[Rfam]
RNA sequence: CGGCCUGAGGUGAUGACUCACAUUCAUGUUUCUUCUCUGAUAAAUGUCUUGAAGAAAAUUCUGUGUAUCUGACCAGGCCU
Dot-bracket structure: .((((......................................................................)))).
Numbered sequence: 001c002g003g004c005c006u007g008a009g010g011u012g013a014u015g016a017c018u019c020a021c022a023u024u025c026a027u028g029u030u031u032c033u034u035c036u037c038u039g040a041u042a043a044a045u046g047u048c049u050u051g052a053a054g055a056a057a058a059u060u061c062u063g064u065g066u067a068u069c070u071g072a073c074c075a076g077g078c079c080u
Stems, first nucleotide, its partner, number of pairs: 002079004
Description
Small nucleolar RNA SNORD111: an 80-nucleotide sequence from Trichechus manatus. The family has 5 seed sequences and 894 matches in Rfam 15.1. Gene Ontology terms of the family: nucleolus and RNA processing. NCBI's taxonomy places the organism under Eukaryota, Opisthokonta, Theria, Eutheria, Trichechus manatus. For this family Rfam cites "RNomics: an experimental approach that identifies 201 candidates for novel, small, non-messenger RNAs in mouse" (Huttenhofer et al., EMBO J, 2001).